The family of this 98-nucleotide RNA from Kalanchoe fedtschenkoi is "Small nucleolar RNA Z157/R69/R10". Rfam classes the family as a C/D-box small nucleolar RNA. A search with the family's covariance model found it, with a score of 61 bits. The base pairs follow the family's consensus structure, which was predicted with PFOLD.
RNA sequence: UACGAAGCGGUGAUGAUAAUCUGUGUGGACUAGAGUUUCUGAUCUGGGCUCUUCUCCCAGUAAAUUGAUUACAACCCCUUGGCUGUCUGAGCUAAUUA
Numbered sequence: 001u002a003c004g005a006a007g008c009g010g011u012g013a014u015g016a017u018a019a020u021c022u023g024u025g026u027g028g029a030c031u032a033g034a035g036u037u038u039c040u041g042a043u044c045u046g047g048g049c050u051c052u053u054c055u056c057c058c059a060g061u062a063a064a065u066u067g068a069u070u071a072c073a074a075c076c077c078c079u080u081g082g083c084u085g086u087c088u089g090a091g092c093u094a095a096u097u098a
Base pairs, nucleotide, nucleotide: 001098002097006093007092008091038068039067043063044060045059046058047057048056